[Rfam]
RNA sequence: ACGGAGACAUGGCAUAAAGCCAGAAGACAAGACGCUGACGAGAUUCUAAACUUGAACUGAUUUGCAUCUCAUUUU
Numbered sequence: 001a002c003g004g005a006g007a008c009a010u011g012g013c014a015u016a017a018a019g020c021c022a023g024a025a026g027a028c029a030a031g032a033c034g035c036u037g038a039c040g041a042g043a044u045u046c047u048a049a050a051c052u053u054g055a056a057c058u059g060a061u062u063u064g065c066a067u068c069u070c071a072u073u074u075u
Base pairs, nucleotide, nucleotide: 004070005069006068007067010022011021012020013019028064029063030062
ctgf/hcs24 CAESAR: a 75-nucleotide sequence from Crypturellus soui. Its family is annotated with negative regulation of gene expression in the Gene Ontology. A reference for the family is Kubota et al. (2000), "Identification of an RNA element that confers post-transcriptional repression of connective tissue growth factor/hypertrophic chondrocyte specific 24 (ctgf/hcs24) gene: similarities to retroviral RNA-protein interactions", Oncogene. It scores 68 bits against the family's covariance model. The family's RNA type in Rfam is cis-regulatory element. Rfam's curators write: The 3' UTR of human connective tissue growth factor/hypertrophic chondrocyte specific 24 (ctgf/hcs24) mRNA has been shown to repress ctgf gene expression. Taxonomically the source falls in Crypturellus (Eukaryota, Bilateria, Archelosauria, Coelurosauria).